[Rfam]
RNA: TPP riboswitch aptamer (THI element)
Organism: Alteromonadaceae bacterium Bs31
RNA sequence: CGCUCUCCUGAGGGGUGGCUGCAAUACACAGCCUGAGAUGGGAUUUCCCGAACCCUUGAACCUGAUCCGGUUAGUACCGGCGUAGGAAUAGGAAAGCGCAUUUUU
Number, nucleotide and partner (000 for none) at each position: 001c000002g000003c000004u000005c000006u093007c092008c091009u090010g089011a056012g055013g054014g053015g000016u050017g033018g032019c031020u030021g029022c000023a000024a000025u000026a000027c000028a000029c021030a020031g019032c018033c017034u000035g000036a000037g000038a000039u000040g049041g048042g047043a000044u000045u000046u000047c042048c041049c040050g016051a000052a000053c014054c013055c012056u011057u000058g000059a000060a000061c086062c085063u084064g083065a000066u000067c080068c079069g078070g077071u000072u000073a000074g000075u000076a000077c070078c069079g068080g067081c000082g000083u064084a063085g062086g061087a000088a000089u010090a009091g008092g007093a006094a000095a000096g000097c000098g000099c000100a000101u000102u000103u000104u000105u000